[Rfam]
RNA: MIR480 microRNA precursor family
Organism: Populus trichocarpa
RNA sequence: UAAUCUAUAUGUGGCAAAUUUUUAUUUAGUUGUGAUAGAUCCACACCUAACUGAUCAGAAUUACUUGUUAUUGCAAGUUUGACAACAUCAUUGACACUGAAAAAUAGAGGACAACUACUGUGUGAUUAAUAAAAAUUUUAGAUU
Numbered sequence: 001u002a003a004u005c006u007a008u009a010u011g012u013g014g015c016a017a018a019u020u021u022u023u024a025u026u027u028a029g030u031u032g033u034g035a036u037a038g039a040u041c042c043a044c045a046c047c048u049a050a051c052u053g054a055u056c057a058g059a060a061u062u063a064c065u066u067g068u069u070a071u072u073g074c075a076a077g078u079u080u081g082a083c084a085a086c087a088u089c090a091u092u093g094a095c096a097c098u099g100a101a102a103a104a105u106a107g108a109g110g111a112c113a114a115c116u117a118c119u120g121u122g123u124g125a126u127u128a129a130u131a132a133a134a135a136u137u138u139u140a141g142a143u144u
Base pairs, nucleotide, nucleotide: 004142005141006140007139009136012132014130018126019125023122024121025120027117028116029115030114031113